A member of the RNA family "Bacterial RNase P class A" from Paenibacillus athensensis, 416 nucleotides long. Taxonomically the source falls in Paenibacillus (Bacteria, Bacillati, Bacillota, Bacilli). Gene Ontology terms of the family: ribonuclease P activity, tRNA processing and dimeric ribonuclease P complex. A search with the family's covariance model found it, with a score of 272 bits. The family's RNA type in Rfam is ribozyme.
RNA sequence: AAAGUUUGACAGACAAUCGCUGGCAAGCGGGUCAUGCCGCUGCGAGAGGAAAGUCCGGGCUCCACAGGGCAGGGUGCUGGAUAACGUCCAGUCAGCGCGAGCUGAAGGAUAGUGCCACAGAAACGGACCGCCGAUGGCGCUUGAAGCGCACAGGCAAGGGUGGAACCGUGGUGUAAGAGACCACGAGGAGCUAUGGUGACAUAGCUCCUGGUAAACCCCACCUGGAGCAAGACCUAGAGGAACGCAAGCCGCCUUCGGGGCGGCAGUCUUUGCCCGAGACGCGUUCGGGUUGGUCGCUGGAGCUGUGCAGCAAUGUACGGCCUAGAUAGAUGAUUGUCGCUUCAACGGUGGGAGGAGAACGACGCUCCGUUACGACCACUGGAAGCACAGAACCCGGCUUACGGCAAGCUUUCCGU
Numbered sequence: 001a002a003a004g005u006u007u008g009a010c011a012g013a014c015a016a017u018c019g020c021u022g023g024c025a026a027g028c029g030g031g032u033c034a035u036g037c038c039g040c041u042g043c044g045a046g047a048g049g050a051a052a053g054u055c056c057g058g059g060c061u062c063c064a065c066a067g068g069g070c071a072g073g074g075u076g077c078u079g080g081a082u083a084a085c086g087u088c089c090a091g092u093c094a095g096c097g098c099g100a101g102c103u104g105a106a107g108g109a110u111a112g113u114g115c116c117a118c119a120g121a122a123a124c125g126g127a128c129c130g131c132c133g134a135u136g137g138c139g140c141u142u143g144a145a146g147c148g149c150a151c152a153g154g155c156a157a158g159g160g161u162g163g164a165a166c167c168g169u170g171g172u173g174u175a176a177g178a179g180a181c182c183a184c185g186a187g188g189a190g191c192u193a194u195g196g197u198g199a200c201a202u203a204g205c206u207c208c209u210g211g212u213a214a215a216c217c218c219c220a221c222c223u224g225g226a227g228c229a230a231g232a233c234c235u236a237g238a239g240g241a242a243c244g245c246a247a248g249c250c251g252c253c254u255u256c257g258g259g260g261c262g263g264c265a266g267u268c269u270u271u272g273c274c275c276g277a278g279a280c281g282c283g284u285u286c287g288g289g290u291u292g293g294u295c296g297c298u299g300g301a302g303c304u305g306u307g308c309a310g311c312a313a314u315g316u317a318c319g320g321c322c323u324a325g326a327u328a329g330a331u332g333a334u335u336g337u338c339g340c341u342u343c344a345a346c347g348g349u350g351g352g353a354g355g356a357g358a359a360c361g362a363c364g365c366u367c368c369g370u371u372a373c374g375a376c377c378a379c380u381g382g383a384a385g386c387a388c389a390g391a392a393c394c395c396g397g398c399u400u401a402c403g404g405c406a407a408g409c410u411u412u413c414c415g416u
Stems, first nucleotide, its partner, number of pairs: 001412008010403001012338007020046002023043003027040003051400003055397005060227004067275004072223005077091005092106001093104004107218002112216002114212003128159002130155003135152002137149004167185006187208009231295004240286006266280005302321008